[Rfam]
Rfam assigns this 106-nucleotide RNA to the family "cow-rumen-2 RNA".
By type it is a small RNA.
It scores 104 bits against the family's covariance model.
RNA sequence: AUUGAAGUAUUUUCUAGCAAAAAAUACACUCAGCCGCCAUUGGUAUUGUGAGAUGUAGCCGGAGUACAGGAUGACCAACCCGUAAGCUCACAUGUAAAUUCCACGU
Numbered sequence: 001a002u003u004g005a006a007g008u009a010u011u012u013u014c015u016a017g018c019a020a021a022a023a024a025u026a027c028a029c030u031c032a033g034c035c036g037c038c039a040u041u042g043g044u045a046u047u048g049u050g051a052g053a054u055g056u057a058g059c060c061g062g063a064g065u066a067c068a069g070g071a072u073g074a075c076c077a078a079c080c081c082g083u084a085a086g087c088u089c090a091c092a093u094g095u096a097a098a099u100u101c102c103a104c105g106u
Stems, first nucleotide, its partner, number of pairs: 002078001007027007040103001042101002044098001047092006060082003065077001069076002